Shown here is a 266-nucleotide RNA sequence from Listeria booriae, a member of the family "Listeria Hfq binding LhrA". Rfam describes the family as follows. This RNA was identifed by screening for RNA molecules which co-immunoprecipitated with the RNA chaperone Hfq. It appears to be transcribed from a region overlapping with predicted protein of unknown function (Lmo2257) and is located between a putative intracellular protease/amidase and a putative protein of the ribulose-phosphate 3 epimerase family. Its is highly expressed in stationary growth phase but its function is unkown.
RNA sequence: AUGAAAUUUCUUAUUCUGACAAAAGGAUACAAAUAAUUUGUUUGCUUUUGUGGGGAUAAGACCCUAUCAUGGUUAUAAUGGAAUUCGGUGUAUCCAUCUUCCAAAUGAUGAGUAGCAAUAUUUAUCAUAUGAUUUCGCACCGAUAACCAUUAUUUGUUUUCAUUCAUCUCAUUUGCCAUGUAGUUUUCGUUUGUGCCUCAUCCCGUUAAGCAUAAACAACCGAACAUGAUGGCGUGCCCAGUCCUAGUGACUGGGCUUUUUUGUUG
Number, nucleotide and partner (000 for none) at each position: 001a067002u066003g065004a000005a000006a000007u000008u000009u061010c060011u059012u058013a057014u055015u054016c053017u052018g000019a051020c050021a049022a048023a047024a046025g045026g000027a043028u000029a041030c040031a039032a038033a000034u000035a000036a000037u000038u032039u031040g030041u029042u000043u027044g000045c025046u024047u023048u022049u021050g020051u019052g017053g016054g015055g014056a000057u013058a012059a011060g010061a009062c000063c000064c000065u003066a002067u001068c000069a000070u000071g000072g000073u000074u000075a153076u152077a151078a150079u149080g148081g147082a000083a000084u145085u143086c142087g141088g140089u139090g138091u137092a000093u000094c000095c000096a000097u000098c000099u000100u000101c000102c000103a133104a000105a000106u000107g000108a128109u000110g123111a122112g121113u120114a000115g000116c000117a000118a000119u000120a113121u112122u111123u110124a000125u000126c000127a000128u108129a000130u000131g000132a000133u103134u000135u000136c000137g091138c090139a089140c088141c087142g086143a085144u000145a084146a000147c081148c080149a079150u078151u077152a076153u075154u000155u000156g000157u000158u000159u000160u000161c000162a000163u000164u000165c000166a000167u000168c000169u000170c000171a000172u000173u000174u000175g233176c232177c231178a230179u229180g000181u000182a000183g225184u224185u223186u222187u000188c000189g217190u216191u215192u214193g213194u212195g211196c210197c000198u000199c000200a000201u000202c000203c000204c000205g000206u000207u000208a000209a000210g196211c195212a194213u193214a192215a191216a190217c189218a000219a000220c000221c000222g186223a185224a184225c183226a000227u000228g000229a179230u178231g177232g176233c175234g000235u000236g256237c255238c254239c253240a000241g251242u250243c249244c000245u000246a000247g000248u000249g243250a242251c241252u000253g239254g238255g237256c236257u000258u000259u000260u000261u000262u000263g000264u000265u000266g000
The family's consensus secondary structure is taken from published work. On this family, see Christiansen et al., RNA 2006: "Identification of small Hfq-binding RNAs in Listeria monocytogenes".